Record summary
The record is a 325-nucleotide RNA sequence from Upupa epops, which matches "7SK RNA" in Rfam. The match comes from Rfam's covariance-model search (236 bits). Rfam classes the family as a non-coding RNA gene. The family is grouped with related families in Rfam's "7SK clan". The literature on the family includes a 2002 paper in Curr Biol by Blencowe, "Transcription: surprising role for an elusive small nuclear RNA". The family has 45 seed sequences and 49,373 matches in Rfam 15.1. Pairs were carried over by alignment from the consensus structure, which is taken from published work. Taxonomically the source falls in Upupa (Eukaryota, Dipnotetrapodomorpha, Tetrapoda, Bucerotiformes). Rfam's curators write: 7SK was discovered as an abundant small nuclear RNA in the mid-70s but a possible function has only recently been suggested. Two independent studies have found that 7SK RNA binds the CDK9/cyclin T complex (known as elongation factor P-TEFb).

RNA sequence: AGCAAUCUGCUCGCUCCUCUGACAUCUGCCACCACAUUGAGCGCCAGGGUUGAUUUGGCUGAUCUGGCUGGCUAGGGGGGUGUCCCUUUCCUCCCUUACCACUCCAUGUGCAUCCCUCCUGAAGCUGUGCACUCAGCUGAAGAGGAUGACCUUCCCCGAUAGAGACAUACUGUCAAUCAGUCAAGGACAUAUGGUAGCUGCGCUCCCCUGCUAGAACUUCCAAACAAGCUCAAGGUCCAUUUGUAGGAGAGCGUAGGGUAGUCAAGCUUCCAAGACUCCAGAUACAUCCAAGUGAGGCACUGCAUGGGGCAGUCUGCCAUUGUUU
Numbered sequence: 001a002g003c004a005a006u007c008u009g010c011u012c013g014c015u016c017c018u019c020u021g022a023c024a025u026c027u028g029c030c031a032c033c034a035c036a037u038u039g040a041g042c043g044c045c046a047g048g049g050u051u052g053a054u055u056u057g058g059c060u061g062a063u064c065u066g067g068c069u070g071g072c073u074a075g076g077g078g079g080g081u082g083u084c085c086c087u088u089u090c091c092u093c094c095c096u097u098a099c100c101a102c103u104c105c106a107u108g109u110g111c112a113u114c115c116c117u118c119c120u121g122a123a124g125c126u127g128u129g130c131a132c133u134c135a136g137c138u139g140a141a142g143a144g145g146a147u148g149a150c151c152u153u154c155c156c157c158g159a160u161a162g163a164g165a166c167a168u169a170c171u172g173u174c175a176a177u178c179a180g181u182c183a184a185g186g187a188c189a190u191a192u193g194g195u196a197g198c199u200g201c202g203c204u205c206c207c208c209u210g211c212u213a214g215a216a217c218u219u220c221c222a223a224a225c226a227a228g229c230u231c232a233a234g235g236u237c238c239a240u241u242u243g244u245a246g247g248a249g250a251g252c253g254u255a256g257g258g259u260a261g262u263c264a265a266g267c268u269u270c271c272a273a274g275a276c277u278c279c280a281g282a283u284a285c286a287u288c289c290a291a292g293u294g295a296g297g298c299a300c301u302g303c304a305u306g307g308g309g310c311a312g313u314c315u316g317c318c319a320u321u322g323u324u325u
Stems, first nucleotide, its partner, number of pairs: 002093001005089001009086001021084007029076002032071002035066002039064002042061001043059003116164003119136004124132001138158002144155003197267003203261002206258006218249004224244005290325003294320001296318003299313005